Bacterial large signal recognition particle RNA: a 265-nucleotide sequence from Fervidobacterium nodosum. Rfam classes the family as a non-coding RNA gene. Taxonomically the source falls in Fervidobacterium nodosum (Bacteria, Thermotogae, Fervidobacteriaceae, Fervidobacterium). The signal recognition particle (SRP) is a universally conserved ribonucleoprotein involved in the co-translational targeting of proteins to membranes.
RNA sequence: CCGUACUAAGCGGGGGGUUGGUGGUCCCCUGUAACCCGAAACCCACCUUAGCGGGGCUGAAUUCCCCGUCUGAGGCUACCUGGGUUCGGAAACGGCGUACCUGAUGGCGUUGAAGGUUGGGUCCUACGCAACAACUACCUGCGAACCGGGUCAGGUCCGGAAGGAAGCAGCCCUAAGUAGGCAAGUGUGUGCCGUAGGGGUGCCCGGCCGGAGCCACAACGGGUACGUACGACCGGGUUCAGGCGUGUCGAAGCGGGGUGUACGG
Numbered sequence: 001c002c003g004u005a006c007u008a009a010g011c012g013g014g015g016g017g018u019u020g021g022u023g024g025u026c027c028c029c030u031g032u033a034a035c036c037c038g039a040a041a042c043c044c045a046c047c048u049u050a051g052c053g054g055g056g057c058u059g060a061a062u063u064c065c066c067c068g069u070c071u072g073a074g075g076c077u078a079c080c081u082g083g084g085u086u087c088g089g090a091a092a093c094g095g096c097g098u099a100c101c102u103g104a105u106g107g108c109g110u111u112g113a114a115g116g117u118u119g120g121g122u123c124c125u126a127c128g129c130a131a132c133a134a135c136u137a138c139c140u141g142c143g144a145a146c147c148g149g150g151u152c153a154g155g156u157c158c159g160g161a162a163g164g165a166a167g168c169a170g171c172c173c174u175a176a177g178u179a180g181g182c183a184a185g186u187g188u189g190u191g192c193c194g195u196a197g198g199g200g201u202g203c204c205c206g207g208c209c210g211g212a213g214c215c216a217c218a219a220c221g222g223g224u225a226c227g228u229a230c231g232a233c234c235g236g237g238u239u240c241a242g243g244c245g246u247g248u249c250g251a252a253g254c255g256g257g258g259u260g261u262a263c264g265g
Base pairs, nucleotide, nucleotide: 001265002264003263004262005261006260009058010057011056012030013029014028015027016026017025018024019023035055036054037053038052064258065257066256067255068254070253071252074249075248076247080242081241082240083239084238085237086236087235088234089233093231094230096227097226098225099224100223101222105219106215107214108213115209116208117207118206119205120204121203122202123198124197125196126195127194128193129189130188132187133186138181139180140179141178142177148173149172150171151170156165157164158163